Rfam assigns this 125-nucleotide sequence from Brassica oleracea to the family "MIR9563 microRNA precursor family". Rfam 15.1 lists 5,832 matches to the family in 9 species. Taxonomically the source falls in Brassica oleracea (Eukaryota, Streptophytina, Mesangiospermae, Brassica). The match comes from Rfam's covariance-model search (114 bits).
RNA sequence: GAAAUAUAAGAACUCGUCUCUUAACUUUUAACUAAAAAAGGUAAGAACUGGUUUUUGAAUAAAAAUUUUAAGAGCCGGUUCUUAACUUUUUUAAUUAAAAGUUAAGAGACGAGUUCUUAUAUUCC
Numbered sequence: 001g002a003a004a005u006a007u008a009a010g011a012a013c014u015c016g017u018c019u020c021u022u023a024a025c026u027u028u029u030a031a032c033u034a035a036a037a038a039a040g041g042u043a044a045g046a047a048c049u050g051g052u053u054u055u056u057g058a059a060u061a062a063a064a065a066u067u068u069u070a071a072g073a074g075c076c077g078g079u080u081c082u083u084a085a086c087u088u089u090u091u092u093a094a095u096u097a098a099a100a101g102u103u104a105a106g107a108g109a110c111g112a113g114u115u116c117u118u119a120u121a122u123u124c125c
Stems, first nucleotide, its partner, number of pairs: 001125001003123029033093007042084006